Rfam assigns this 182-nucleotide sequence to the family "NiCo (Nickel/Cobalt) riboswitch aptamer". On this family, see Furukawa et al., Mol Cell 2015: "Bacterial riboswitches cooperatively bind Ni(2+) or Co(2+) ions and control expression of heavy metal transporters". Its family is annotated with cobalt ion binding and metal ion homeostasis in the Gene Ontology. It is one of the family's seed sequences.
RNA sequence: ACAGUACAAACUGAGCAGGCGAUGCUUUUCGGAAUCGAAAAUAUUUAUCCGAAGGCAUGGGGCCGGGCCGCAGGAAGCGGCAGCGGAUAUGGAUUUAAACGUAAUUGCAAAGAACCUGCAUUCACGGAAUAUGAGGUGAAGCAGAAUGUGACUUUGCUUUCGGACAUAUCUGCGGGACAGUG
Numbered sequence: 001a002c003a004g005u006a007c008a009a010a011c012u013g014a015g016c017a018g019g020c021g022a023u024g025c026u027u028u029u030c031g032g033a034a035u036c037g038a039a040a041a042u043a044u045u046u047a048u049c050c051g052a053a054g055g056c057a058u059g060g061g062g063c064c065g066g067g068c069c070g071c072a073g074g075a076a077g078c079g080g081c082a083g084c085g086g087a088u089a090u091g092g093a094u095u096u097a098a099a100c101g102u103a104a105u106u107g108c109a110a111a112g113a114a115c116c117u118g119c120a121u122u123c124a125c126g127g128a129a130u131a132u133g134a135g136g137u138g139a140a141g142c143a144g145a146a147u148g149u150g151a152c153u154u155u156g157c158u159u160u161c162g163g164a165c166a167u168a169u170c171u172g173c174g175g176g177a178c179a180g181u182g
Stems, first nucleotide, its partner, number of pairs: 010181004016176001018064003022058008067081005083173009